This 81-nucleotide RNA sequence from Crocodylus porosus belongs to the Rfam family "Mammalian CPEB3 ribozyme".
Nucleotides: 081
Stems, first nucleotide, its partner, number of pairs: 011044004019081007026038003048070006
Number, partner (000 for none) and nucleotide at each position: 001000u002000c003000u004000g005000c006000c007000g008000a009000u010000g011044g012043g013042g014041g015000c016000c017000a018000u019081a020080g021079c022078a023077g024076a025075a026038g027037c028036a029000u030000u031000c032000a033000c034000a035000u036028u037027g038026c039000a040000a041014c042013c043012c044011c045000u046000g047000u048070c049069a050068g051067a052066u053065a054000a055000u056000a057000c058000a059000u060000g061000g062000u063000a064000a065053u066052a067051u068050c069049u070048g071000c072000a073000a074000a075025u076024u077023c078022u079021g080020c081019u
Description
The mammalian CPEB3 ribozyme is a self cleaving RNA located in the second intron of the CPEB3 gene which belongs to a family of genes regulating messenger RNA polyadenylation. The base pairs follow the family's consensus structure, which is taken from published work. Lineage of the source: Eukaryota > Bilateria > Euteleostomi > Crocodylia > Crocodylus.